[Rfam]
RNA sequence: UGUAUAUUUUAGGAUCAUUCUUGUAUAUACUCGAUUAUAUGGUUCGAGUGUUUCUACUAGGUUACCGUAAAAAAAGCCUAACUACAGGAAUAGCAUAAUAAAAG
Numbered sequence: 001u002g003u004a005u006a007u008u009u010u011a012g013g014a015u016c017a018u019u020c021u022u023g024u025a026u027a028u029a030c031u032c033g034a035u036u037a038u039a040u041g042g043u044u045c046g047a048g049u050g051u052u053u054c055u056a057c058u059a060g061g062u063u064a065c066c067g068u069a070a071a072a073a074a075a076g077c078c079u080a081a082c083u084a085c086a087g088g089a090a091u092a093g094c095a096u097a098a099u100a101a102a103a104g
Stems, first nucleotide, its partner, number of pairs: 018090008029049006058080006
Purine riboswitch aptamer: a 104-nucleotide sequence from Clostridium cylindrosporum. The organism belongs to Clostridium cylindrosporum, within Bacteria. Pairs were carried over by alignment from the consensus structure, which is taken from published work.